The family of this 75-nucleotide RNA from Alligator mississippiensis is "Mammalian CPEB3 ribozyme". Pairs were carried over by alignment from the consensus structure, which is taken from published work. Its family is annotated with RNA nuclease activity in the Gene Ontology. NCBI's taxonomy places the organism under Eukaryota, Teleostomi, Euteleostomi, Sauria, Alligator.

RNA sequence: AACUGUCAUGAUGUCCAUAGCAGAAGCGCUCACAUCGUGGCCCUAUCAGAUUCUAAUGAAUCUGCAAAUUCUGCU
Numbered sequence: 001a002a003c004u005g006u007c008a009u010g011a012u013g014u015c016c017a018u019a020g021c022a023g024a025a026g027c028g029c030u031c032a033c034a035u036c037g038u039g040g041c042c043c044u045a046u047c048a049g050a051u052u053c054u055a056a057u058g059a060a061u062c063u064g065c066a067a068a069u070u071c072u073g074c075u
Stems, first nucleotide, its partner, number of pairs: 010043001013042001015040002019075007026038003047064007
Dot-bracket structure: .........[..[.[[..((((((((((.......)))]].]]...(((((((....)))))))....)))))))